[Rfam]
Nucleotides: 582
Base pairs, nucleotide, nucleotide: 001578002577003576004575005574006573007572008571010570011569012568014565015564022399023398024397025396027395028394029391030390031389032388033387035193036192037191038190042185043184044183045182046181047180048179051154052153053152054151055150056149057148058147059146060145061144062143063142064141065140066139067138068137078136079135080134081133082132085119086118087117097110098109099108100107101106158173159172160171161170196209197207198206199205210232211231212230213229214228215227235338236337241293242292243291244290245289246288247273248272250268251267252266253265254264255263274283275282298324299323300322301321302320303319304318305317326335328333349377350376351375352374353373355372357371358370359369360368408449409448410447412446413443414442415441416440417439418438419437423433424432460535461533462532463531464530465527466524467523468522469521470520473498474497477492478491479490480489481488501513502512503511504510541559542558543557544556545554546553547552
Number, partner (000 for none) and nucleotide at each position: 001578c002577c003576c004575c005574c006573a007572u008571c009000g010570g011569g012568g013000a014565g015564a016000g017000a018000a019000g020000u021000c022399c023398c024397u025396g026000u027395g028394g029391a030390g031389c032388u033387u034000u035193a036192c037191u038190g039000c040000a041000g042185c043184c044183u045182g046181c047180a048179g049000c050000u051154g052153c053152g054151a055150u056149g057148u058147g059146g060145g061144u062143g063142c064141g065140a066139c067138u068137a069000c070000a071000g072000a073000g074000a075000g076000u077000a078136g079135c080134u081133g082132g083000g084000a085119g086118c087117c088000a089000a090000u091000g092000a093000a094000g095000c096000c097110g098109g099108g100107c101106c102000c103000u104000u105000g106101g107100g108099u109098c110097c111000g112000g113000u114000g115000g116000a117087g118086g119085c120000g121000a122000a123000a124000g125000u126000g127000u128000a129000a130000c131000a132082c133081c134080a135079g136078c137068u138067a139066g140065u141064c142063g143062u144061g145060c146059c147058u148057a149056c150055g151054u152053c153052g154051c155000u156000u157000a158173c159172c160171a161170g162000g163000a164000c165000a166000g167000a168000a169000c170161c171160u172159g173158g174000g175000a176000c177000a178000c179048c180047u181046g182045c183044a184043g185042g186000u187000g188000g189000g190038c191037a192036g193035u194000u195000c196209g197207g198206c199205u200000g201000g202000g203000g204000c205199g206198g207197c208000a209196c210232c211231c212230c213229c214228u215227c216000g217000a218000a219000a220000a221000g222000g223000u224000a225000u226000c227215g228214a229213g230212g231211g232210g233000g234000c235338c236337c237000a238000a239000a240000g241293g242292u243291c244290g245289g246288c247273u248272c249000a250268g251267g252266u253265g254264g255263g256000u257000c258000a259000g260000g261000a262000a263255c264254c265253c266252a267251c268250c269000g270000u271000a272248g273247a274283g275282g276000g277000c278000a279000a280000g281000g282275c283274c284000a285000a286000a287000a288246g289245c290244c291243g292242g293241c294000c295000u296000g297000a298324c299323u300322g301321g302320a303319c304318c305317c306000c307000u308000a309000a310000a311000c312000g313000c314000g315000u316000c317305g318304g319303g320302u321301c322300c323299a324298g325000a326335g327000g328333g329000g330000a331000a332000a333328c334000c335326c336000g337236g338235g339000c340000c341000u342000a343000g344000c345000g346000a347000a348000c349377c350376a351375u352374c353373g354000u355372g356000c357371c358370c359369c360368c361000a362000c363000c364000g365000u366000u367000g368360g369359g370358g371357g372355c373353c374352g375351g376350u377349g378000a379000c380000g381000a382000c383000a384000g385000a386000a387033a388032a389031g390030u391029u392000a393000c394028c395027c396025c397024a398023g399022g400000g401000g402000u403000a404000a405000c406000a407000g408449g409448c410447u411000c412446g413443u414442c415441g416440c417439g418438g419437g420000c421000g422000a423433g424432a425000g426000u427000u428000c429000c430000c431000a432424u433423c434000g435000a436000c437419c438418c439417c440416g441415c442414g443413g444000u445000u446412u447410g448409g449408u450000a451000c452000c453000u454000c455000g456000a457000u458000g459000u460535c461533g462532g463531c464530u465527c466524u467523u468522c469521c470520c471000a472000u473498c474497c475000u476000g477492g478491c479490c480489c481488u482000g483000c484000a485000g486000c487000a488481g489480g490479g491478g492477c493000c494000a495000a496000g497474g498473g499000c500000g501513g502512g503511g504510c505000u506000g507000c508000u509000c510504g511503c512502c513501c514000a515000u516000u517000a518000a519000a520470g521469g522468g523467g524466a525000a526000c527465g528000u529000g530464a531463g532462c533461u534000g535460g536000g537000u538000u539000u540000a541559g542558a543557c544556c545554g546553u547552c548000g549000c550000g551000a552547g553546a554545c555000a556544g557543g558542u559541c560000g561000g562000a563000c564015u565014c566000u567000a568012c569011c570010u571008g572007a573006u574005g575004g576003g577002g578001g579000u580000g581000c582000g
Archaeal large subunit ribosomal RNA: a 582-nucleotide part of an RNA from an uncultured Nitrososphaerota archaeon. The base pairs follow the family's consensus structure, which is taken from published work. The sequence is in the family's curated seed alignment.